[Rfam]
RNA sequence: GGGCAAAUGAGGGAAAGAUAAUUAUCUAGAAAAGAAUGAUAGGAACAAAGGAACCACUUAAAUGCCA
Numbered sequence: 001g002g003g004c005a006a007a008u009g010a011g012g013g014a015a016a017g018a019u020a021a022u023u024a025u026c027u028a029g030a031a032a033a034g035a036a037u038g039a040u041a042g043g044a045a046c047a048a049a050g051g052a053a054c055c056a057c058u059u060a061a062a063u064g065c066c067a
Stems, first nucleotide, its partner, number of pairs: 002066004
The family of this 67-nucleotide sequence from Prolemur simus is "Small nucleolar RNA SNORD42". The family's RNA type in Rfam is C/D-box small nucleolar RNA. The source organism's lineage runs through Eukaryota, Gnathostomata, Teleostomi, Theria and Prolemur. On this family, see Galardi et al., Mol Cell Biol 2002: "Purified box C/D snoRNPs are able to reproduce site-specific 2'-O-methylation of target RNA in vitro". Its family is annotated with nucleolus and RNA processing in the Gene Ontology. Rfam 15.1 lists 848 matches to the family in 572 species. snoRNA U42 is found in intron 3 of the ribosomal protein L23a (RPL23a) gene in humans and is also present in mice. The match comes from Rfam's covariance-model search (49 bits).